[Rfam]
RNA sequence: GAGACACCCUUAUGGAGCAGGACUUGCUUCAAUGGGGCUUUGGUGCUCAAUGAAUCUGACCCUUAAGUGUGUCACU
Numbered sequence: 001g002a003g004a005c006a007c008c009c010u011u012a013u014g015g016a017g018c019a020g021g022a023c024u025u026g027c028u029u030c031a032a033u034g035g036g037g038c039u040u041u042g043g044u045g046c047u048c049a050a051u052g053a054a055u056c057u058g059a060c061c062c063u064u065a066a067g068u069g070u071g072u073c074a075c076u
Stems, first nucleotide, its partner, number of pairs: 001075001003073005009067004014062002018058002021056002029053003033049004037044002

The record is a 76-nucleotide RNA sequence from Cnephaeus nilssonii, which matches "mir-9229 microRNA precursor family" in Rfam. The organism belongs to Cnephaeus, within Eukaryota. It scores 78 bits against the family's covariance model. Rfam links the family to the GO terms miRNA-mediated post-transcriptional gene silencing and RISC complex. Pairs were carried over by alignment from the consensus structure, which was predicted with RNAalifold.